[Rfam]
RNA sequence: CUGAUAUUUUCUUUGGUUAUCUAGCUGUAUGAGUGAUAUUAACAUCAUAAAGCUAGGUUACCAAAGUUAACAGCAC
Numbered sequence: 001c002u003g004a005u006a007u008u009u010u011c012u013u014u015g016g017u018u019a020u021c022u023a024g025c026u027g028u029a030u031g032a033g034u035g036a037u038a039u040u041a042a043c044a045u046c047a048u049a050a051a052g053c054u055a056g057g058u059u060a061c062c063a064a065a066g067u068u069a070a071c072a073g074c075a076c
Base pairs, nucleotide, nucleotide: 002075003074005072007070008069011066012065013064014063015062016061017060019058020057021056022055023054024053025052026051028049029048030047031046032045
RNA: mir-9/mir-79 microRNA precursor family